[Rfam]
RNA: Small nucleolar RNA SNORA69
RNA sequence: GCACUAAGGGGGCAUUGGACUUUGAUUUACUAAGUCUGUCAUUGGUUAGUAAAAGAAAAUAUAUUUCAGGCUGGUCUCAUAUUGUGUCCUUGGGAACAAUAUGAGAUCAGCCUGAAAUAUACCUGU
Numbered sequence: 001g002c003a004c005u006a007a008g009g010g011g012g013c014a015u016u017g018g019a020c021u022u023u024g025a026u027u028u029a030c031u032a033a034g035u036c037u038g039u040c041a042u043u044g045g046u047u048a049g050u051a052a053a054a055g056a057a058a059a060u061a062u063a064u065u066u067c068a069g070g071c072u073g074g075u076c077u078c079a080u081a082u083u084g085u086g087u088c089c090u091u092g093g094g095a096a097c098a099a100u101a102u103g104a105g106a107u108c109a110g111c112c113u114g115a116a117a118u119a120u121a122c123c124u125g126u
Stems, first nucleotide, its partner, number of pairs: 003050005016038007024030001061120011077104009087094002